[Rfam]
RNA sequence: GAGAGGGAGGCGGUUAAGACUUGCAGUGAUGUUUAGGGGCGUUGACACAUGAACAUCACUUUAAGUCUGUGCUGGCUCCA
Numbered sequence: 001g002a003g004a005g006g007g008a009g010g011c012g013g014u015u016a017a018g019a020c021u022u023g024c025a026g027u028g029a030u031g032u033u034u035a036g037g038g039g040c041g042u043u044g045a046c047a048c049a050u051g052a053a054c055a056u057c058a059c060u061u062u063a064a065g066u067c068u069g070u071g072c073u074g075g076c077u078c079c080a
Base pairs, nucleotide, nucleotide: 017068018067019066020065021064022063023062026059027058028057029056030055031054032053033052034051035050

Description:
The record is an 80-nucleotide sequence from Albula goreensis, which matches "mir-499 microRNA precursor family" in Rfam. NCBI's taxonomy places the organism under Eukaryota, Craniata, Vertebrata, Gnathostomata, Albula. For this family Rfam cites "Mammalian microRNAs: experimental evaluation of novel and previously annotated genes" (Chiang et al., Genes Dev, 2010). The base pairs follow the family's consensus structure, which was predicted with RNAalifold.